[Rfam]
23S methyl RNA motif: a 107-nucleotide RNA from Companilactobacillus allii. Gene Ontology term of the family: regulation of gene expression. A reference for the family is Weinberg et al. (2007), "Identification of 22 candidate structured RNAs in bacteria using the CMfinder comparative genomics pipeline", Nucleic Acids Res. It scores 65 bits against the family's covariance model.

RNA sequence: UGGUUACUUGUUUUUCUCAGGAUUAAUUUUGACAAAAGCAAGUAAAUGUAAAAGCUUAACUAACGCAUGUCCUUGCUGUGGCGAUCACCGAGGGUAUGCGUUUUUUU
Numbered sequence: 001u002g003g004u005u006a007c008u009u010g011u012u013u014u015u016c017u018c019a020g021g022a023u024u025a026a027u028u029u030u031g032a033c034a035a036a037a038g039c040a041a042g043u044a045a046a047u048g049u050a051a052a053a054g055c056u057u058a059a060c061u062a063a064c065g066c067a068u069g070u071c072c073u074u075g076c077u078g079u080g081g082c083g084a085u086c087a088c089c090g091a092g093g094g095u096a097u098g099c100g101u102u103u104u105u106u107u
Stems, first nucleotide, its partner, number of pairs: 002047001004045012017032003062102014078088003